[Rfam]
RNA sequence: GCCUUCCUGCUAAGGUGCAUCUAGUGCAGUUAGUGAAUUAGUUUAGAAUCUACUGCGCUGGGUGUUCCUUCUGGCAGGAGGU
Numbered sequence: 001g002c003c004u005u006c007c008u009g010c011u012a013a014g015g016u017g018c019a020u021c022u023a024g025u026g027c028a029g030u031u032a033g034u035g036a037a038u039u040a041g042u043u044u045a046g047a048a049u050c051u052a053c054u055g056c057g058c059u060g061g062g063u064g065u066u067c068c069u070u071c072u073g074g075c076a077g078g079a080g081g082u
Stems, first nucleotide, its partner, number of pairs: 004079003010073001013069003017065011029054001031052003